[Rfam]
RNA sequence: CUCUGUGCACGAUUGAGGCUCAGGGCGGAAAGAG
Numbered sequence: 001c002u003c004u005g006u007g008c009a010c011g012a013u014u015g016a017g018g019c020u021c022a023g024g025g026c027g028g029a030a031a032g033a034g
Stems, first nucleotide, its partner, number of pairs: 001025005007019002
Description: The record is a 34-nucleotide RNA from Paenibacillus sanguinis, which matches "L31-Firmicutes ribosomal protein leader" in Rfam. A reference for the family is Eckert and Weinberg (2020), "Discovery of 20 novel ribosomal leader candidates in bacteria and archaea", BMC Microbiol. By type it is a cis-regulatory leader. NCBI's taxonomy places the organism under Bacteria, Bacillota, Bacilli, Paenibacillaceae, Paenibacillus sanguinis.